Shown here is a 104-nucleotide RNA from Mesobacillus zeae, a member of the family "SAM riboswitch aptamer (S box leader)". The organism belongs to Mesobacillus, within Bacteria.

[Rfam]
RNA sequence: UUCUUAUCAAGAGAGGUGGAGGGAAAUGGCCCUAUGAAGCCCGGCAACCGGUCAGUGAACACGGUGCUAAUUCCAUCAGGGCAGACCGCCUUGAAAGAUAAGGA
Numbered sequence: 001u002u003c004u005u006a007u008c009a010a011g012a013g014a015g016g017u018g019g020a021g022g023g024a025a026a027u028g029g030c031c032c033u034a035u036g037a038a039g040c041c042c043g044g045c046a047a048c049c050g051g052u053c054a055g056u057g058a059a060c061a062c063g064g065u066g067c068u069a070a071u072u073c074c075a076u077c078a079g080g081g082c083a084g085a086c087c088g089c090c091u092u093g094a095a096a097g098a099u100a101a102g103g104a
Base pairs, nucleotide, nucleotide: 001104002103003102004101005100006099007098008097013042015041016040017039021032022031023030026076027075028074029073043068044067045066046065048064049063050060052058053057072096077093078092079091080090081089082088